[Rfam]
RNA: Small nucleolar RNA SNORA41
Organism: Pan troglodytes
Nucleotides: 132
Stems, first nucleotide, its partner, number of pairs: 003059004017046009074121005083110003086106006
Number, partner (000 for none) and nucleotide at each position: 001000u002000u003059c004058c005057a006056c007000a008000g009000c010000u011000a012000c013000u014000g015000g016000u017046c018045u019044g020043c021042a022041g023040c024039u025038g026000u027000u028000c029000u030000u031000a032000u033000g034000g035000u036000a037000g038025c039024a040023g041022u042021u043020g044019u045018g046017g047000c048000a049000u050000u051000c052000c053000u054000c055000u056006g057005u058004g059003g060000g061000a062000a063000a064000g065000a066000a067000a068000c069000u070000g071000u072000u073000a074121a075120c076119a077118c078117a079000a080000a081000c082000c083110c084109c085108u086106c087105u088104u089103u090102c091101u092000u093000a094000g095000c096000a097000a098000a099000a100000c101091a102090g103089a104088a105087a106086g107000u108085g109084g110083g111000u112000a113000u114000a115000u116000a117078u118077g119076u120075g121074u122000g123000a124000c125000a126000g127000a128000c129000a130000c131000a132000a